Notes:
TPP riboswitch aptamer (THI element): a 107-nucleotide RNA from Clostridium frigidicarnis. Gene Ontology term of the family: thiamine pyrophosphate binding. The base pairs follow the family's consensus structure, which is taken from published work.
[Rfam]
RNA sequence: AUUUAAAGCUAGGGGUGCUUAUUAUAAUAAGCUGAGAGAAGCAGUGAGCUUUAACCCUUGAACCUGAUGUGGUUAACACCAACGUAGGAAAGCUAUAAUAAUUGCAA
Numbered sequence: 001a002u003u004u005a006a007a008g009c010u011a012g013g014g015g016u017g018c019u020u021a022u023u024a025u026a027a028u029a030a031g032c033u034g035a036g037a038g039a040a041g042c043a044g045u046g047a048g049c050u051u052u053a054a055c056c057c058u059u060g061a062a063c064c065u066g067a068u069g070u071g072g073u074u075a076a077c078a079c080c081a082a083c084g085u086a087g088g089a090a091a092g093c094u095a096u097a098a099u100a101a102u103u104g105c106a107a
Base pairs, nucleotide, nucleotide: 007094008093009092010091011058012057013056014055017032018031019030020029021028039051040050041049042048063088064087065086066085070081071080072079